[Rfam]
RNA sequence: GGUUGGUCCGAUGGUAGUGAGUUAUCUCACUUGAUUGUUCAGUCAGUUACAGAAUCCUUGUUCUACCACUUUCCCCCCUUCUCACUACUGCACCUGACUAGUCUUAA
Numbered sequence: 001g002g003u004u005g006g007u008c009c010g011a012u013g014g015u016a017g018u019g020a021g022u023u024a025u026c027u028c029a030c031u032u033g034a035u036u037g038u039u040c041a042g043u044c045a046g047u048u049a050c051a052g053a054a055u056c057c058u059u060g061u062u063c064u065a066c067c068a069c070u071u072u073c074c075c076c077c078c079u080u081c082u083c084a085c086u087a088c089u090g091c092a093c094c095u096g097a098c099u100a101g102u103c104u105u106a107a
Stems, first nucleotide, its partner, number of pairs: 001103008010095001014091002016086006042067001045064002
RNA: Y RNA